[Rfam]
The family of this 85-nucleotide sequence is "skipping-rope RNA".
RNA sequence: GGUCUUCGAGGUGGUAGAUUUCGUGUCAACCACACGCCCCCGUGGCUAAAAGAGAUGCAGGGGAACGGCACGCCUGCCGAAGACC
Number, nucleotide and partner (000 for none) at each position: 001g085002g084003u083004c082005u081006u080007c079008g078009a000010g000011g033012u032013g031014g030015u029016a000017g000018a000019u000020u000021u000022c000023g071024u070025g069026u068027c067028a000029a015030c014031c013032a012033c011034a000035c052036g046037c045038c044039c000040c000041c000042g000043u000044g038045g037046c036047u000048a000049a000050a000051a000052g035053a000054g000055a000056u000057g077058c076059a000060g075061g074062g073063g000064a000065a000066c000067g027068g026069c025070a024071c023072g000073c062074c061075u060076g058077c057078c008079g007080a006081a005082g004083a003084c002085c001